[Rfam]
RNA: c-di-GMP-I riboswitch aptamer
RNA sequence: AAAUUGAAUAGGCAAACCUAUGGAAAUGUAGGGACGCAAAGCUAAAGGGACUAAAGUUAAUCAAGUUUAGUGACGAUGUCAGCCAGCUGCCAAA
Numbered sequence: 001a002a003a004u005u006g007a008a009u010a011g012g013c014a015a016a017c018c019u020a021u022g023g024a025a026a027u028g029u030a031g032g033g034a035c036g037c038a039a040a041g042c043u044a045a046a047g048g049g050a051c052u053a054a055a056g057u058u059a060a061u062c063a064a065g066u067u068u069a070g071u072g073a074c075g076a077u078g079u080c081a082g083c084c085a086g087c088u089g090c091c092a093a094a
Stems, first nucleotide, its partner, number of pairs: 012037002017032006040088004047084002049080003056074004